[Rfam]
RNA sequence: UUGACCGUGAAGUCCCAGUCGGGCACCUCCUCACCCAGAAUGCGCUCGCCGAAGAACCGGCCGUCGUUGAGCACCUCGAGCGCGGUCUGCUCGCCGUACGCGCCGGUGCCGAGUUUGCUCGCCUUGCCGUGUGCGAGCAGAACGAGUUCGUUGGCCGGGUUGCCGGCUUCUGCCAGCAGGUCUCCCGGCUCGUACUCCCGUUUCUCGAAGCGAUCGGCGAGCGCUUCGAGCGCGGCGUCGUCGUCGAAGGUGCGCAGGUACCGCAGCUCCCGCAGCUCCGGCGCCAGCACGCGGACGUCGUCACCGGAGGUCACGCACGUGAUCCGGCCGUCCCCGAUGGUGUAGGUCAAACGCCGGUUGACCCGGUAGACGCCGCCGUCCGCCUGAACCCACGGCAGCAGCUUCAACAGCCACCGCGACGUGAUGCCCUGCAUCUGCGGCGUCGACUUGGUGGUGGUCGCGAGGUUUCGCGCCGCCGCGGUACUCAGGCUCUGCUGCGGGUUCUCCGC
Numbered sequence: 001u002u003g004a005c006c007g008u009g010a011a012g013u014c015c016c017a018g019u020c021g022g023g024c025a026c027c028u029c030c031u032c033a034c035c036c037a038g039a040a041u042g043c044g045c046u047c048g049c050c051g052a053a054g055a056a057c058c059g060g061c062c063g064u065c066g067u068u069g070a071g072c073a074c075c076u077c078g079a080g081c082g083c084g085g086u087c088u089g090c091u092c093g094c095c096g097u098a099c100g101c102g103c104c105g106g107u108g109c110c111g112a113g114u115u116u117g118c119u120c121g122c123c124u125u126g127c128c129g130u131g132u133g134c135g136a137g138c139a140g141a142a143c144g145a146g147u148u149c150g151u152u153g154g155c156c157g158g159g160u161u162g163c164c165g166g167c168u169u170c171u172g173c174c175a176g177c178a179g180g181u182c183u184c185c186c187g188g189c190u191c192g193u194a195c196u197c198c199c200g201u202u203u204c205u206c207g208a209a210g211c212g213a214u215c216g217g218c219g220a221g222c223g224c225u226u227c228g229a230g231c232g233c234g235g236c237g238u239c240g241u242c243g244u245c246g247a248a249g250g251u252g253c254g255c256a257g258g259u260a261c262c263g264c265a266g267c268u269c270c271c272g273c274a275g276c277u278c279c280g281g282c283g284c285c286a287g288c289a290c291g292c293g294g295a296c297g298u299c300g301u302c303a304c305c306g307g308a309g310g311u312c313a314c315g316c317a318c319g320u321g322a323u324c325c326g327g328c329c330g331u332c333c334c335c336g337a338u339g340g341u342g343u344a345g346g347u348c349a350a351a352c353g354c355c356g357g358u359u360g361a362c363c364c365g366g367u368a369g370a371c372g373c374c375g376c377c378g379u380c381c382g383c384c385u386g387a388a389c390c391c392a393c394g395g396c397a398g399c400a401g402c403u404u405c406a407a408c409a410g411c412c413a414c415c416g417c418g419a420c421g422u423g424a425u426g427c428c429c430u431g432c433a434u435c436u437g438c439g440g441c442g443u444c445g446a447c448u449u450g451g452u453g454g455u456g457g458u459c460g461c462g463a464g465g466u467u468u469c470g471c472g473c474c475g476c477c478g479c480g481g482u483a484c485u486c487a488g489g490c491u492c493u494g495c496u497g498c499g500g501g502u503u504c505u506c507c508g509c
Base pairs, nucleotide, nucleotide: 007389008388011385012384014382018328019327021325022324024321025320026319029315041313042312046310047309049307050306051305054233057230060227063224064223065111066110068108077102078101080099082097083096084095085094086093117222118221119220120219122217123216127212130209131206133204135202136201140197144195149192150191154189155188156187157186158185159184161178162177165174166173167172234302235301236300237299240296241295242294245291249285250284251283252282253281254278256277257276329342330341331340332339351379352378353377355375356374357373363369391431392430394428395427396426397425399423400422403418405416437476438475439474440473442471443470445468446467447465448464449463451461452460477508478507480503481502482501484499486497487496488495
RNA: Saccharopolyspora sRNA 350